[Rfam]
RNA sequence: CCUGUGGUUAGACGGAAAGACCCCGUGAACCUUUACUGCAGCUUAGCAUUGAAACUUGGCCUUACAUGUGUAGGAUAGGUGGGAGACUGCGAACUGUGCACGCUAGUGUGCAGGGAGUCGUUGGUGAAAUACCACCCUUGUACGGUUAGGUUUCUAACGCGCACCAUGAAGCUGGUGUGUGGACAAUGUUAGGUGGGCGGUUUGACUGGGGCGGUCGCCUCCUAAAGAGUAACGGAGGCGCGCGAAGGUUCCCUUGCGCUGGUUGGAAAUCAGCGUGAAAGUGCAAAGGCAUAAGGGAGCUUGACUGCGAGACGUACAUGUCGAGCAGGUACGAAAGUAGGUCUUAGUGAUCUGGCCGUGGCGUGUGGAAGCGCGGUCACUUAACGGACAAAAGGUACUCCGGGGAUAACAGGCUGAUUUUGCCCAAGAGUUCAUAUCGACGGCAAAGUUUGGCACCUCGAUGUCGGCUCAUCGCAUCCUGGGGCUGGAGCAGGUCCCAAGGGUAUGGCUGUUCGCCAUUUAAAGCGGUACGUGAGCUGGGUUCAGAACGUCGCGAGACAGUUCGGUCCCUAUCUGCCACAGGCGUU
Numbered sequence: 001c002c003u004g005u006g007g008u009u010a011g012a013c014g015g016a017a018a019g020a021c022c023c024c025g026u027g028a029a030c031c032u033u034u035a036c037u038g039c040a041g042c043u044u045a046g047c048a049u050u051g052a053a054a055c056u057u058g059g060c061c062u063u064a065c066a067u068g069u070g071u072a073g074g075a076u077a078g079g080u081g082g083g084a085g086a087c088u089g090c091g092a093a094c095u096g097u098g099c100a101c102g103c104u105a106g107u108g109u110g111c112a113g114g115g116a117g118u119c120g121u122u123g124g125u126g127a128a129a130u131a132c133c134a135c136c137c138u139u140g141u142a143c144g145g146u147u148a149g150g151u152u153u154c155u156a157a158c159g160c161g162c163a164c165c166a167u168g169a170a171g172c173u174g175g176u177g178u179g180u181g182g183a184c185a186a187u188g189u190u191a192g193g194u195g196g197g198c199g200g201u202u203u204g205a206c207u208g209g210g211g212c213g214g215u216c217g218c219c220u221c222c223u224a225a226a227g228a229g230u231a232a233c234g235g236a237g238g239c240g241c242g243c244g245a246a247g248g249u250u251c252c253c254u255u256g257c258g259c260u261g262g263u264u265g266g267a268a269a270u271c272a273g274c275g276u277g278a279a280a281g282u283g284c285a286a287a288g289g290c291a292u293a294a295g296g297g298a299g300c301u302u303g304a305c306u307g308c309g310a311g312a313c314g315u316a317c318a319u320g321u322c323g324a325g326c327a328g329g330u331a332c333g334a335a336a337g338u339a340g341g342u343c344u345u346a347g348u349g350a351u352c353u354g355g356c357c358g359u360g361g362c363g364u365g366u367g368g369a370a371g372c373g374c375g376g377u378c379a380c381u382u383a384a385c386g387g388a389c390a391a392a393a394g395g396u397a398c399u400c401c402g403g404g405g406a407u408a409a410c411a412g413g414c415u416g417a418u419u420u421u422g423c424c425c426a427a428g429a430g431u432u433c434a435u436a437u438c439g440a441c442g443g444c445a446a447a448g449u450u451u452g453g454c455a456c457c458u459c460g461a462u463g464u465c466g467g468c469u470c471a472u473c474g475c476a477u478c479c480u481g482g483g484g485c486u487g488g489a490g491c492a493g494g495u496c497c498c499a500a501g502g503g504u505a506u507g508g509c510u511g512u513u514c515g516c517c518a519u520u521u522a523a524a525g526c527g528g529u530a531c532g533u534g535a536g537c538u539g540g541g542u543u544c545a546g547a548a549c550g551u552c553g554c555g556a557g558a559c560a561g562u563u564c565g566g567u568c569c570c571u572a573u574c575u576g577c578c579a580c581a582g583g584c585g586u587u
Stems, first nucleotide, its partner, number of pairs: 001583008010575003014570002022404004027400002029396005035201004042193007051154011063142004068137001078136005085119003094113008158181009204216004217239006240385001242342002248300006254280002257275006281290002305328004311322003330339003353379007361372002413454003417451001418448007428438002465540001466538004470532001471529005478503002481498006505519005546564004550559003